[Rfam]
Small nucleolar RNA SNORD17: a 246-nucleotide sequence from Prunella himalayana.
Its family is annotated with RNA processing and nucleolus in the Gene Ontology.
The family's consensus secondary structure was predicted with RNAalifold.
The family's RNA type in Rfam is C/D-box small nucleolar RNA.
The organism belongs to Prunella, within Eukaryota.
The snoRNA HBI-43 belongs to the C/D family of snoRNAs, guiding 2'O-ribose methylation at position U3797 of the 28S rRNA. Pseudouridylation in position U3797 is predicted to be guided by the H/ACA snoRNA ACA48.
RNA sequence: GUGAGGUGAUGACACAGUUUAUCCAUUCUCUGAGUGCAGUGGAGCUGCCCUUCUGCAGCACCCAGCUCCUGUUCUAGGCUCUGGGUGCUGUGCAGCCUUCCAGACAUCCUGCAGUGUGCCAGUGUCCUACUGGGGGCUGCUGUGAUGUGUGGCUGGCUGCCUGCAGGAGGGGAGCAGUGCUGGCAGGCUUGGAGCCCCUCUUUGGGGGCUCCAUCCUCACUGGGACGAGGGAUGGUGUCUGAUCAC
Numbered sequence: 001g002u003g004a005g006g007u008g009a010u011g012a013c014a015c016a017g018u019u020u021a022u023c024c025a026u027u028c029u030c031u032g033a034g035u036g037c038a039g040u041g042g043a044g045c046u047g048c049c050c051u052u053c054u055g056c057a058g059c060a061c062c063c064a065g066c067u068c069c070u071g072u073u074c075u076a077g078g079c080u081c082u083g084g085g086u087g088c089u090g091u092g093c094a095g096c097c098u099u100c101c102a103g104a105c106a107u108c109c110u111g112c113a114g115u116g117u118g119c120c121a122g123u124g125u126c127c128u129a130c131u132g133g134g135g136g137c138u139g140c141u142g143u144g145a146u147g148u149g150u151g152g153c154u155g156g157c158u159g160c161c162u163g164c165a166g167g168a169g170g171g172g173a174g175c176a177g178u179g180c181u182g183g184c185a186g187g188c189u190u191g192g193a194g195c196c197c198c199u200c201u202u203u204g205g206g207g208g209c210u211c212c213a214u215c216c217u218c219a220c221u222g223g224g225a226c227g228a229g230g231g232a233u234g235g236u237g238u239c240u241g242a243u244c245a246c
Base pairs, nucleotide, nucleotide: 010245011244012243017238018237020235023231024230026229027228028227030224031223034220035219039184040183042181044178045177046176047175048174049171050170051168052167053166054165055164056163057162058088059087060086061085062084063083064082065081068078069077070076092160093159094158095157096156097155106146107145111140112139113138114137115136117134119133120132121131122130123129124128186218187217190213191212192211193210194209195208197206198205